epsC RNA: a 114-nucleotide RNA from Gottfriedia endophytica. Lineage of the source: Bacteria > Bacillota > Bacilli > Bacillaceae > Gottfriedia. Rfam classes the family as a cis-regulatory element.
RNA sequence: AGGUGAUGUCUUCUUACCUUUAUCAAUGAAGGCACUCGGUCAUAUUGUGGGUAGAAGAAUCUACCUUAGGCGUUAGUCGCCAUUGGUGUGGUGUGAGGAUGGGUUAGAUGCCCA
Numbered sequence: 001a002g003g004u005g006a007u008g009u010c011u012u013c014u015u016a017c018c019u020u021u022a023u024c025a026a027u028g029a030a031g032g033c034a035c036u037c038g039g040u041c042a043u044a045u046u047g048u049g050g051g052u053a054g055a056a057g058a059a060u061c062u063a064c065c066u067u068a069g070g071c072g073u074u075a076g077u078c079g080c081c082a083u084u085g086g087u088g089u090g091g092u093g094u095g096a097g098g099a100u101g102g103g104u105u106a107g108a109u110g111c112c113c114a
Stems, first nucleotide, its partner, number of pairs: 001019004007034007035097004039092008049066007069081004100114005
Dot-bracket structure: [[[[..(((((((..]]]]........)))))))((((((((((((..(((((((....)))))))..((((.....))))...)))))))).))))..(((((.....)))))